[Rfam]
RNA: mir-544 microRNA precursor family
RNA sequence: AUUGCCUGGGGAUCUUGUUAAAAUGCAGAUUCUGGUGCCGUAGUUCUGGAGUGGGGCCAGGUUCUGCAUUUCUAACAAGCUCCCAGGGGACGCUGG
Numbered sequence: 001a002u003u004g005c006c007u008g009g010g011g012a013u014c015u016u017g018u019u020a021a022a023a024u025g026c027a028g029a030u031u032c033u034g035g036u037g038c039c040g041u042a043g044u045u046c047u048g049g050a051g052u053g054g055g056g057c058c059a060g061g062u063u064c065u066g067c068a069u070u071u072c073u074a075a076c077a078a079g080c081u082c083c084c085a086g087g088g089g090a091c092g093c094u095g096g
Base pairs, nucleotide, nucleotide: 003089005087009083010082011081014079015078016077017076018075019074020073021071022070023069025067026066027065028064029063031061032060033059034058035057036056